[Rfam]
RNA: BsrG
Organism: Neobacillus cucumis
RNA sequence: CAAUAGAAUAGUUUUCUCAAGGGUGGACGGCACAUCUCCCAAGGAAAGGGGGUGAUGCUUUUGACAGUUUUUCAGGCAUUGAUGUUUAGCUUAUCAUUUGCUAGUCUCAUUGUCACGGUUCUGUCUUUCCACAAAAAAAAAUAAUCCACCCUUGAGCCGGCAAGCAGAAGCGGUGGAUUAGUGCCCGUAAUGCCGAUCCCAAAAAAGGGAAACAGCUAUUGCAUGACCGAGCCAUUUUUUUCGCCUUGCUCGG
Numbered sequence: 001c002a003a004u005a006g007a008a009u010a011g012u013u014u015u016c017u018c019a020a021g022g023g024u025g026g027a028c029g030g031c032a033c034a035u036c037u038c039c040c041a042a043g044g045a046a047a048g049g050g051g052g053u054g055a056u057g058c059u060u061u062u063g064a065c066a067g068u069u070u071u072u073c074a075g076g077c078a079u080u081g082a083u084g085u086u087u088a089g090c091u092u093a094u095c096a097u098u099u100g101c102u103a104g105u106c107u108c109a110u111u112g113u114c115a116c117g118g119u120u121c122u123g124u125c126u127u128u129c130c131a132c133a134a135a136a137a138a139a140a141a142u143a144a145u146c147c148a149c150c151c152u153u154g155a156g157c158c159g160g161c162a163a164g165c166a167g168a169a170g171c172g173g174u175g176g177a178u179u180a181g182u183g184c185c186c187g188u189a190a191u192g193c194c195g196a197u198c199c200c201a202a203a204a205a206a207g208g209g210a211a212a213c214a215g216c217u218a219u220u221g222c223a224u225g226a227c228c229g230a231g232c233c234a235u236u237u238u239u240u241u242c243g244c245c246u247u248g249c250u251c252g253g
Stems, first nucleotide, its partner, number of pairs: 001221005009215001011213001013211001014196002016156008025146002033054002036052005063125005076090002099117002164184003197210004227253006